[Rfam]
RNA sequence: GUUGCAAAUUCACGGCAAUAGCAGAAGCGCUCAUGGCACGGCCCUGUCAGAUUCGAACAAAUCUGUGAAUUCUGCU
Numbered sequence: 001g002u003u004g005c006a007a008a009u010u011c012a013c014g015g016c017a018a019u020a021g022c023a024g025a026a027g028c029g030c031u032c033a034u035g036g037c038a039c040g041g042c043c044c045u046g047u048c049a050g051a052u053u054c055g056a057a058c059a060a061a062u063c064u065g066u067g068a069a070u071u072c073u074g075c076u
Stems, first nucleotide, its partner, number of pairs: 014043003020076007027039001029037001048065006
The record is a 76-nucleotide sequence from Alligator sinensis, which matches "Mammalian CPEB3 ribozyme" in Rfam.
Its family is annotated with RNA nuclease activity in the Gene Ontology.
The source organism's lineage runs through Eukaryota, Tetrapoda, Crocodylia, Alligatoridae and Alligator.
The match comes from Rfam's covariance-model search (45 bits).